Rfam assigns this 116-nucleotide RNA sequence from Thiocystis violascens to the family "ALIL pseudoknot". The family's consensus secondary structure is taken from published work. By type it is a cis-regulatory element. It scores 106 bits against the family's covariance model.
Nucleotides: 116
Base pairs, nucleotide, nucleotide: 016032017031018030019029020028078116079115080114082113089112090111092109093108094107095106096105097104
Number, partner (000 for none) and nucleotide at each position: 001000g002000g003000c004000g005000u006000a007000u008000u009000u010000u011000g012000c013000c014000c015000a016032g017031g018030c019029g020028g021000a022000g023000c024000u025000c026000g027000a028020c029019c030018g031017c032016c033000c034000c035000g036000u037000c038000a039000a040000g041000c042000g043000a044000u045000g046000a047000u048000g049000g050000a051000c052000u053000u054000u055000a056000u057000g058000g059000a060000u061000g062000a063000a064000c065000a066000c067000c068000g069000c070000g071000a072000a073000g074000c075000c076000g077000a078116c079115g080114g081000g082113g083000u084000c085000g086000a087000g088000c089112c090111g091000a092109u093108c094107u095106g096105c097104a098000a099000g100000g101000u102000u103000c104097u105096g106095c107094a108093g109092g110000u111090u112089g113082c114080c115079c116078g